[Rfam]
RNA sequence: CAAACUCCGCGUGACUGGCGAUAGAAUCUUCGGAUUCAAGGUGGAACGACCCACCGGGAAGCGCGGAGCAUCGUUUUGCCGUUCGCCUGGGCAGCUGAG
Numbered sequence: 001c002a003a004a005c006u007c008c009g010c011g012u013g014a015c016u017g018g019c020g021a022u023a024g025a026a027u028c029u030u031c032g033g034a035u036u037c038a039a040g041g042u043g044g045a046a047c048g049a050c051c052c053a054c055c056g057g058g059a060a061g062c063g064c065g066g067a068g069c070a071u072c073g074u075u076u077u078g079c080c081g082u083u084c085g086c087c088u089g090g091g092c093a094g095c096u097g098a099g
Stems, first nucleotide, its partner, number of pairs: 005068008015058002017087005041054004076094005
Rfam assigns this 99-nucleotide RNA sequence from Caballeronia glathei to the family "ZMP/ZTP riboswitch aptamer (pfl RNA motif)". Taxonomically the source falls in Caballeronia (Bacteria, Pseudomonadota, Betaproteobacteria, Burkholderiaceae). The family's consensus secondary structure is taken from published work.